Small nucleolar RNA SNORD102: a 71-nucleotide RNA sequence from Anolis carolinensis. A search with the family's covariance model found it, with a score of 64 bits. Taxonomically the source falls in Anolis (Eukaryota, Chordata, Sarcopterygii, Dipnotetrapodomorpha). By type it is a C/D-box small nucleolar RNA. The family's consensus secondary structure was predicted with PFOLD. For this family Rfam cites "Identification of 13 novel human modification guide RNAs" (Vitali et al., Nucleic Acids Res, 2003).
[Rfam]
RNA sequence: GGCUUGAUGAUGAUUGUCUCUUAUGAUUGCUUCUGCAAAGUGAGCAAAUCAUUUCACCGGCACUGAAAGCA
Numbered sequence: 001g002g003c004u005u006g007a008u009g010a011u012g013a014u015u016g017u018c019u020c021u022u023a024u025g026a027u028u029g030c031u032u033c034u035g036c037a038a039a040g041u042g043a044g045c046a047a048a049u050c051a052u053u054u055c056a057c058c059g060g061c062a063c064u065g066a067a068a069g070c071a
Stems, first nucleotide, its partner, number of pairs: 002070004